[Rfam]
Nucleotides: 241
Stems, first nucleotide, its partner, number of pairs: 008107001015103004026091006040079003052075006110147007149164003183207009212238004223234004
Number, partner (000 for none) and nucleotide at each position: 001000a002000u003000g004000g005000g006000a007000u008107c009000g010000u011000u012000g013000a014000a015103a016102a017101g018100g019000g020000a021000a022000a023000g024000u025000a026091a027090a028089a029088a030087u031086a032000g033000g034000c035000u036000a037000u038000g039000c040079u041078c042077a043000g044000a045000c046000a047000g048000a049000g050000a051000g052075a053074a054073u055072c056071a057070c058000c059000a060000c061000c062000g063000g064000c065000u066000g067000a068000a069000a070057g071056u072055g073054a074053u075052u076000u077042u078041g079040a080000g081000g082000a083000c084000c085000c086031u087030a088029u089028u090027u091026u092000g093000a094000a095000g096000u097000g098000c099000c100018c101017c102016u103015u104000g105000g106000a107008g108000u109000c110147u111146g112145u113144u114143a115142u116141g117000g118000a119000a120000c121000a122000u123000g124000a125000u126000u127000g128000a129000u130000u131000u132000u133000a134000a135000u136000u137000a138000g139000u140000a141116c142115a143114u144113a145112a146111c147110a148000g149164c150163g151162g152000u153000u154000a155000a156000g157000u158000u159000c160000u161000g162151c163150c164149g165000u166000u167000a168000u169000c170000a171000g172000a173000a174000c175000a176000a177000g178000a179000g180000u181000u182000g183207g184206a185205a186204g187203u188202c189201u190200a191199u192000u193000a194000u195000c196000a197000u198000u199191a200190u201189g202188g203187g204186c205185u206184u207183c208000a209000a210000a211000c212238a213237g214236a215235g216000u217000g218000g219000a220000a221000c222000c223234g224233c225232g226231c227000a228000c229000u230000a231226g232225c233224g234223u235215c236214u237213c238212u239000g240000u241000g
T-box leader: a 241-nucleotide RNA sequence from Ornithinibacillus halophilus. About the family: Uncharged tRNA acts as the effector for transcription antitermination of genes in the T-box leader family. T-boxes are found upstream of many aminoacyl-tRNA synthetase genes and some amino acid biosynthetic genes usually in Gram-positive bacteria.